[Rfam]
The family of this 79-nucleotide sequence from Macaca mulatta is "mir-500 microRNA precursor family". For this family Rfam cites "Small RNA expression and strain specificity in the rat" (Linsen et al., BMC Genomics, 2010).

RNA sequence: CCCUCUCUAAUCCUUGCUAUCUGGGUGCUAGUGCUGUCUCAAUGCAAUGCACCUGGGCAAGGAUUCAGAGAGGGGGAGC
Numbered sequence: 001c002c003c004u005c006u007c008u009a010a011u012c013c014u015u016g017c018u019a020u021c022u023g024g025g026u027g028c029u030a031g032u033g034c035u036g037u038c039u040c041a042a043u044g045c046a047a048u049g050c051a052c053c054u055g056g057g058c059a060a061g062g063a064u065u066c067a068g069a070g071a072g073g074g075g076g077a078g079c
Stems, first nucleotide, its partner, number of pairs: 009065007020057008032046003